[Rfam]
RNA: c-di-GMP-I riboswitch aptamer
Organism: Sporolactobacillus putidus
RNA sequence: UUUUCUAAAAGGCAAAGCUGCUGAAAAGCAGCGGCGCAAAGUCACAGAUCUAAAGCGUGAUUCGCUAUGAUGGCUGGACUGCCGUG
Numbered sequence: 001u002u003u004u005c006u007a008a009a010a011g012g013c014a015a016a017g018c019u020g021c022u023g024a025a026a027a028g029c030a031g032c033g034g035c036g037c038a039a040a041g042u043c044a045c046a047g048a049u050c051u052a053a054a055g056c057g058u059g060a061u062u063c064g065c066u067a068u069g070a071u072g073g074c075u076g077g078a079c080u081g082c083c084g085u086g
Stems, first nucleotide, its partner, number of pairs: 012037002017032006040080004045076003048071003055065003